[Rfam]
RNA: let-7 microRNA precursor family
RNA sequence: UGGGGCUGAGGUAGUAGAUUGAAUAGUUGUGGGGAUGCGGGUGCUCCCUUCUGAGUUAACUAUGCAAUCUACUGUCUUUCCUAA
Numbered sequence: 001u002g003g004g005g006c007u008g009a010g011g012u013a014g015u016a017g018a019u020u021g022a023a024u025a026g027u028u029g030u031g032g033g034g035a036u037g038c039g040g041g042u043g044c045u046c047c048c049u050u051c052u053g054a055g056u057u058a059a060c061u062a063u064g065c066a067a068u069c070u071a072c073u074g075u076c077u078u079u080c081c082u083a084a
Stems, first nucleotide, its partner, number of pairs: 001084001003082003008078014023063005032046003048055002